Nucleotides: 087
Stems, first nucleotide, its partner, number of pairs: 002069004008063005073086001075084001
Number, partner (000 for none) and nucleotide at each position: 001000a002069g003068u004067c005066g006000g007000a008063g009062c010061a011060g012059a013000c014000a015000u016000u017000u018000a019000g020000a021000c022000u023000u024000c025000a026000u027000u028000g029000a030000u031000g032000a033000a034000a035000a036000u037000u038000u039000g040000u041000g042000a043000a044000g045000u046000c047000u048000a049000u050000a051000u052000u053000a054000u055000a056000u057000g058000u059012u060011c061010u062009g063008u064000g065000a066005c067004g068003g069002c070000g071000u072000a073086c074000c075084u076000u077000u078000u079000g080000u081000a082000u083000a084075a085000u086073g087000g